[Rfam]
RNA: Alphaproteobacterial ar14
Organism: Rhizobium sp. P32RR-XVIII
RNA sequence: GUGGUUCAGACGCCCACUCCUCCUUCCAAGGGCGUCUGUCGGAACAGCGACACUCCUCCUCCCAGUCGCUGUUCGGUUCUUUUCGAAAGCCUGCCGCACCUCCUUCCGCGGCAGGCUUUCUCG
Numbered sequence: 001g002u003g004g005u006u007c008a009g010a011c012g013c014c015c016a017c018u019c020c021u022c023c024u025u026c027c028a029a030g031g032g033c034g035u036c037u038g039u040c041g042g043a044a045c046a047g048c049g050a051c052a053c054u055c056c057u058c059c060u061c062c063c064a065g066u067c068g069c070u071g072u073u074c075g076g077u078u079c080u081u082u083u084c085g086a087a088a089g090c091c092u093g094c095c096g097c098a099c100c101u102c103c104u105u106c107c108g109c110g111g112c113a114g115g116c117u118u119u120c121u122c123g
Base pairs, nucleotide, nucleotide: 007038008037009036010035011034012033013032014031015030042074043073044072045071046070047069048068049067050066051065087118088117089116090115091114092113093112094111095110096109097108